[Rfam]
RNA sequence: AUCUUUGAGCUUGGGGCAAUGACACAGCUAGUGAGGUUCUAACUGAAGCGCGUCUUUUGCUUGUUGAAGACUAUUUCCAAAGCCCCUCUUGGACCUCGGUUUGGCCCUGGCCUUUGAGAAUUUCUGGAACCCUUGGGGGG
Numbered sequence: 001a002u003c004u005u006u007g008a009g010c011u012u013g014g015g016g017c018a019a020u021g022a023c024a025c026a027g028c029u030a031g032u033g034a035g036g037u038u039c040u041a042a043c044u045g046a047a048g049c050g051c052g053u054c055u056u057u058u059g060c061u062u063g064u065u066g067a068a069g070a071c072u073a074u075u076u077c078c079a080a081a082g083c084c085c086c087u088c089u090u091g092g093a094c095c096u097c098g099g100u101u102u103g104g105c106c107c108u109g110g111c112c113u114u115u116g117a118g119a120a121u122u123u124c125u126g127g128a129a130c131c132c133u134u135g136g137g138g139g140g
Stems, first nucleotide, its partner, number of pairs: 021054003025050001027049003035044003086118003091113002094110002098106002132139002

This 140-nucleotide sequence from Carya illinoinensis belongs to the Rfam family "U4 spliceosomal RNA". The organism belongs to Carya, within Eukaryota. The match comes from Rfam's covariance-model search (86 bits). The family's RNA type in Rfam is spliceosomal small nuclear RNA. From the family's description: U4 small nuclear RNA (U4 snRNA) is a component of the major U2-dependent spliceosome.